[Rfam]
RNA sequence: UAUCGAUAAAGGCAAACUACCCGAAAGGAUAGGACGCAAAAGCUCUGGUCUAAGGCCCUUACGGGGCUACGACAGCAGGCCUGCCGAA
Numbered sequence: 001u002a003u004c005g006a007u008a009a010a011g012g013c014a015a016a017c018u019a020c021c022c023g024a025a026a027g028g029a030u031a032g033g034a035c036g037c038a039a040a041a042g043c044u045c046u047g048g049u050c051u052a053a054g055g056c057c058c059u060u061a062c063g064g065g066g067c068u069a070c071g072a073c074a075g076c077a078g079g080c081c082u083g084c085c086g087a088a
Stems, first nucleotide, its partner, number of pairs: 012037002017032003021028002040082001042080002045078003048073003055067004
RNA: c-di-GMP-I riboswitch aptamer
Organism: Candidatus Sulfobium mesophilum